Annotation: The record is a 77-nucleotide RNA sequence from Trichonephila clavipes, which matches "mir-137 microRNA precursor family" in Rfam. Rfam links the family to the GO terms miRNA-mediated post-transcriptional gene silencing and RISC complex. Its Rfam clan is "mir-137 clan". The match comes from Rfam's covariance-model search (61 bits). The literature on the family includes a 2007 paper in Genome Res by Ruby et al., "Evolution, biogenesis, expression, and target predictions of a substantially expanded set of Drosophila microRNAs". The family has 62 seed sequences and 1,138 matches in Rfam 15.1.
RNA sequence: GAUUGUCACGUGUAUUCCUGAGUGAAUAACACAUGAUUAUUAAAUCCUGUUAUUGCUUGAGAAUACACGUGAUUGUC
Numbered sequence: 001g002a003u004u005g006u007c008a009c010g011u012g013u014a015u016u017c018c019u020g021a022g023u024g025a026a027u028a029a030c031a032c033a034u035g036a037u038u039a040u041u042a043a044a045u046c047c048u049g050u051u052a053u054u055g056c057u058u059g060a061g062a063a064u065a066c067a068c069g070u071g072a073u074u075g076u077c
Base pairs, nucleotide, nucleotide: 001077002076003075005073008070009069010068012066013065014064015063016062017061019059020058021057022056023055025054026053027052028051029050030049031048033045